[Rfam]
RNA sequence: ACCAUCCUUUUUUGGGGGUAGUACGACUGUCCAAUGAAUGAGUAGUGAGGGUAGUACUGCUAAUGCCUAUCCAGCAUGCCCACAUCAACAAGAGCUUUGCUUCACUUUGGUGCAAUUUUUGGAAAA
Numbered sequence: 001a002c003c004a005u006c007c008u009u010u011u012u013u014g015g016g017g018g019u020a021g022u023a024c025g026a027c028u029g030u031c032c033a034a035u036g037a038a039u040g041a042g043u044a045g046u047g048a049g050g051g052u053a054g055u056a057c058u059g060c061u062a063a064u065g066c067c068u069a070u071c072c073a074g075c076a077u078g079c080c081c082a083c084a085u086c087a088a089c090a091a092g093a094g095c096u097u098u099g100c101u102u103c104a105c106u107u108u109g110g111u112g113c114a115a116u117u118u119u120u121g122g123a124a125a126a
Base pairs, nucleotide, nucleotide: 006018007017008016009015021060022059023058026055027054028053029052030051031050032049038046039045083112084111085110086109087108092102093101094100095099
The record is a 126-nucleotide RNA sequence from Prolemur simus, which matches "U4atac minor spliceosomal RNA" in Rfam. Gene Ontology terms of the family: pre-mRNA 5'-splice site binding, mRNA 5'-splice site recognition and spliceosomal tri-snRNP complex assembly. On this family, see Marz et al., J Mol Evol 2008: "Evolution of spliceosomal snRNA genes in metazoan animals".